Overview: The family of this 130-nucleotide sequence from Cavia porcellus is "Small nucleolar RNA SNORA64/SNORA10 family". Clan: SNORA64 clan. About the family: This family belongs to the H/ACA class of small nucleolar RNAs (snoRNAs) which act as guides in the the modification of uridines to pseudouridines. This family includes the human snoRNAs U64 and ACA10 and mouse MBI-29. The family's RNA type in Rfam is H/ACA-box small nucleolar RNA. The family has 9 seed sequences and 703 matches in Rfam 15.1. The base pairs follow the family's consensus structure, which is taken from published work. Gene Ontology terms of the family: RNA processing and nucleolus. Taxonomically the source falls in Cavia (Eukaryota, Craniata, Euteleostomi, Boreoeutheria).
[Rfam]
RNA sequence: ACUCUCUCUACUCUGCACGGUUACACUACUUAUAGUGUGACUUUCGUACCGGGGAGAGAGAGAAAAGAGCUCUUCAGGACCUUGGACUGGCCUCAUAAUGGCCUUUCUUUCCUUGAGGGGCACAACAGGC
Numbered sequence: 001a002c003u004c005u006c007u008c009u010a011c012u013c014u015g016c017a018c019g020g021u022u023a024c025a026c027u028a029c030u031u032a033u034a035g036u037g038u039g040a041c042u043u044u045c046g047u048a049c050c051g052g053g054g055a056g057a058g059a060g061a062g063a064a065a066a067g068a069g070c071u072c073u074u075c076a077g078g079a080c081c082u083u084g085g086a087c088u089g090g091c092c093u094c095a096u097a098a099u100g101g102c103c104u105u106u107c108u109u110u111c112c113u114u115g116a117g118g119g120g121c122a123c124a125a126c127a128g129g130c
Stems, first nucleotide, its partner, number of pairs: 002062007011054005019042008070120005076114003084108003089103004